S4-Clostridia ribosomal protein leader: a 51-nucleotide RNA sequence from bacterium 1xD42-87. Rfam classes the family as a cis-regulatory leader. The base pairs follow the family's consensus structure, which is taken from published work.

RNA sequence: GAAAGAUCGGAUGUCUGAUCCGGUUGGGCGGAGCAAUCUGCCUCAAUCAAU
Numbered sequence: 001g002a003a004a005g006a007u008c009g010g011a012u013g014u015c016u017g018a019u020c021c022g023g024u025u026g027g028g029c030g031g032a033g034c035a036a037u038c039u040g041c042c043u044c045a046a047u048c049a050a051u
Base pairs, nucleotide, nucleotide: 005025006024007023008022009021010020011019012018026043027042028041029040030039031038